[Rfam]
RNA: PreQ1 (pre queuosine) riboswitch aptamer
Organism: Romboutsia maritimum
RNA sequence: UUAGGACUUGUUCGAGAACUCCAAGUAUAAAAAACUAAGGGUUU
Numbered sequence: 001u002u003a004g005g006a007c008u009u010g011u012u013c014g015a016g017a018a019c020u021c022c023a024a025g026u027a028u029a030a031a032a033a034a035c036u037a038a039g040g041g042u043u044u
Stems, first nucleotide, its partner, number of pairs: 006026005016036001